[Rfam]
RNA sequence: GGUUUCCAUUGGUCUAAAUCCAAUCACCUAAAUUUGAGAUGAAAAGCAAUUCCCCAUAGGUAGCAAAUAGUUAUCCAGGAAGAAAGAGUAU
Numbered sequence: 001g002g003u004u005u006c007c008a009u010u011g012g013u014c015u016a017a018a019u020c021c022a023a024u025c026a027c028c029u030a031a032a033u034u035u036g037a038g039a040u041g042a043a044a045a046g047c048a049a050u051u052c053c054c055c056a057u058a059g060g061u062a063g064c065a066a067a068u069a070g071u072u073a074u075c076c077a078g079g080a081a082g083a084a085a086g087a088g089u090a091u
Stems, first nucleotide, its partner, number of pairs: 009023004054079002057077001059075006
A member of the RNA family "Plastid-rps12 3UTR RNA" from Zingiber officinale, 91 nucleotides long. Plastid rpl20 is a non-coding RNA (ncRNA) recognised in plastids. It was found in the three prime untranslated region (3UTR) of rps12 gene, its 3UTR location sugest a role in transcript maduration. The base pairs follow the family's consensus structure, which was predicted with LocARNA. The literature on the family includes a 2023 paper in Plant Commun by Richter et al., "Retrograde signaling in plants: A critical review focusing on the GUN pathway and beyond". A search with the family's covariance model found it, with a score of 82 bits. By type it is a cis-regulatory element.